[Rfam]
RNA sequence: UCAAGAGUUCGAGGCUAUACCAGAAGCUCCCAGGCUGCAGUCCUGCCAGAUUCCAAUGAAUCUGCAAAUUCUGCU
Numbered sequence: 001u002c003a004a005g006a007g008u009u010c011g012a013g014g015c016u017a018u019a020c021c022a023g024a025a026g027c028u029c030c031c032a033g034g035c036u037g038c039a040g041u042c043c044u045g046c047c048a049g050a051u052u053c054c055a056a057u058g059a060a061u062c063u064g065c066a067a068a069u070u071c072u073g074c075u
Base pairs, nucleotide, nucleotide: 011043013042014041015040016039019075021073022072023071024070025069026038027037047064048063049062050061051060052059053058
Background:
A member of the RNA family "Mammalian CPEB3 ribozyme" from Alligator mississippiensis, 75 nucleotides long. The organism belongs to Alligator, within Eukaryota. About the family: The mammalian CPEB3 ribozyme is a self cleaving RNA located in the second intron of the CPEB3 gene which belongs to a family of genes regulating messenger RNA polyadenylation.